[Rfam]
Source information: SAH (S-adenosyl-L-homocysteine) riboswitch aptamer: an 82-nucleotide RNA from Dokdonella koreensis. Its family is annotated with regulation of gene expression and S-adenosylhomocysteine metabolic process in the Gene Ontology. Pairs were carried over by alignment from the consensus structure, which is taken from published work. The organism belongs to Dokdonella koreensis, within Bacteria. The match comes from Rfam's covariance-model search (48 bits).
RNA sequence: CCCACCGAGGGGCGCUGCGACCGUCGCUCCGUCGACGACCAGGCUCGGCGGGCCGUCCCCUUUCGAACCGCGCCUACCGAAU
Numbered sequence: 001c002c003c004a005c006c007g008a009g010g011g012g013c014g015c016u017g018c019g020a021c022c023g024u025c026g027c028u029c030c031g032u033c034g035a036c037g038a039c040c041a042g043g044c045u046c047g048g049c050g051g052g053c054c055g056u057c058c059c060c061u062u063u064c065g066a067a068c069c070g071c072g073c074c075u076a077c078c079g080a081a082u
Stems, first nucleotide, its partner, number of pairs: 002051002005048004022037005